[Rfam]
RNA sequence: AUAUUAUAAAUAAUUUAACAUCGUAUAACUCCAAUAAUAUGGUUUGGAGGUUUCUACCAGGUACCUAUAAUUCCUGAUUACGAAGAGGGUCUGUUUUUAC
Numbered sequence: 001a002u003a004u005u006a007u008a009a010a011u012a013a014u015u016u017a018a019c020a021u022c023g024u025a026u027a028a029c030u031c032c033a034a035u036a037a038u039a040u041g042g043u044u045u046g047g048a049g050g051u052u053u054c055u056a057c058c059a060g061g062u063a064c065c066u067a068u069a070a071u072u073c074c075u076g077a078u079u080a081c082g083a084a085g086a087g088g089g090u091c092u093g094u095u096u097u098u099a100c
Stems, first nucleotide, its partner, number of pairs: 019085001021083005029049006058076004063071001